RNA sequence: UGAGACGACCAGACGGCCGCGGGAGCGAUGCUCCUGAGGAACGUCCGGGCUCCACAGAGCAAGGUGGUGGGUAACUCCCACCCAGGGUGACCUGCGGGAAAGUGCCACAGAAAACAGACCGCCCACCACGUGUGGGUAAGGGUGAAACGGUGGUGUAAGAGACCACCAGCAUGCCAGGUGACUGGCGUGGCUAGGUAAACCCCACCUGGAGCAAGGCCAGACAGGACACAAUGACGCUGCUCGUUGAGUGUCCGGGUAGGCUGCUAGAGCGAUGCGGUAACGCACCGUCGAGAUGGAUGGCCGUCACCUUCGGUGAGUGAUCACCAUGAGGGACAGAACCCGGCGUAUCGGUCGUCUCAUCCG
Numbered sequence: 001u002g003a004g005a006c007g008a009c010c011a012g013a014c015g016g017c018c019g020c021g022g023g024a025g026c027g028a029u030g031c032u033c034c035u036g037a038g039g040a041a042c043g044u045c046c047g048g049g050c051u052c053c054a055c056a057g058a059g060c061a062a063g064g065u066g067g068u069g070g071g072u073a074a075c076u077c078c079c080a081c082c083c084a085g086g087g088u089g090a091c092c093u094g095c096g097g098g099a100a101a102g103u104g105c106c107a108c109a110g111a112a113a114a115c116a117g118a119c120c121g122c123c124c125a126c127c128a129c130g131u132g133u134g135g136g137u138a139a140g141g142g143u144g145a146a147a148c149g150g151u152g153g154u155g156u157a158a159g160a161g162a163c164c165a166c167c168a169g170c171a172u173g174c175c176a177g178g179u180g181a182c183u184g185g186c187g188u189g190g191c192u193a194g195g196u197a198a199a200c201c202c203c204a205c206c207u208g209g210a211g212c213a214a215g216g217c218c219a220g221a222c223a224g225g226a227c228a229c230a231a232u233g234a235c236g237c238u239g240c241u242c243g244u245u246g247a248g249u250g251u252c253c254g255g256g257u258a259g260g261c262u263g264c265u266a267g268a269g270c271g272a273u274g275c276g277g278u279a280a281c282g283c284a285c286c287g288u289c290g291a292g293a294u295g296g297a298u299g300g301c302c303g304u305c306a307c308c309u310u311c312g313g314u315g316a317g318u319g320a321u322c323a324c325c326a327u328g329a330g331g332g333a334c335a336g337a338a339c340c341c342g343g344c345g346u347a348u349c350g351g352u353c354g355u356c357u358c359a360u361c362c363g
Base pairs, nucleotide, nucleotide: 001359002358003357004356005355006354007353008352009351010350011348012305013304014303015302016301017300018299020036021035022034023033024032025031026030041346042345043344045343046342047341048340049339050211051210052209053208057242058241059240060239062207063206064205065204066203067081068080069079070078071077082096083094084093085092086091097202098201102200103199104196105195106194119141120140121137122136123135124134125133126132149167150166151165152164153163154162169191170189171188172187173186174185175184176183177182215262216261217260218259224253225252226251227250228249229248236244237243269288270287271286273284274283275282276281
RNA: Bacterial RNase P class A